c-di-GMP-I riboswitch aptamer: a 125-nucleotide RNA sequence from Candidatus Brocadia fulgida. A search with the family's covariance model found it, with a score of 58 bits. NCBI's taxonomy places the organism under Bacteria, Planctomycetota, Candidatus Brocadiales, Candidatus Brocadiaceae, Candidatus Brocadia.
RNA sequence: UUACGACAAAGGCAAACCCUGGGCAAUCAGGGGACGCAAAGGAAAGGGUCUUUUGACGGAUAUGAGGUAAAGGCGCGUGGCAACGCGCCUCUCCCCCCCGCGAAAAAGAUAGCCUUACUGCCGAA
Numbered sequence: 001u002u003a004c005g006a007c008a009a010a011g012g013c014a015a016a017c018c019c020u021g022g023g024c025a026a027u028c029a030g031g032g033g034a035c036g037c038a039a040a041g042g043a044a045a046g047g048g049u050c051u052u053u054u055g056a057c058g059g060a061u062a063u064g065a066g067g068u069a070a071a072g073g074c075g076c077g078u079g080g081c082a083a084c085g086c087g088c089c090u091c092u093c094c095c096c097c098c099c100g101c102g103a104a105a106a107a108g109a110u111a112g113c114c115u116u117a118c119u120g121c122c123g124a125a
Base pairs, nucleotide, nucleotide: 012037013036017032018031019030020029021028022027040119041118043116045115046114047113048110049109050108052106053105054104